[Rfam]
RNA sequence: GCGAGAACCGUGUGAAUCAAGUAGUAUAGUGAUUCACGCGGUUCUCGC
Numbered sequence: 001g002c003g004a005g006a007a008c009c010g011u012g013u014g015a016a017u018c019a020a021g022u023a024g025u026a027u028a029g030u031g032a033u034u035c036a037c038g039c040g041g042u043u044c045u046c047g048c
Stems, first nucleotide, its partner, number of pairs: 001048019
RNA: Plastid-ccsA-ndhD-1 3UTR RNA
Organism: Helianthus annuus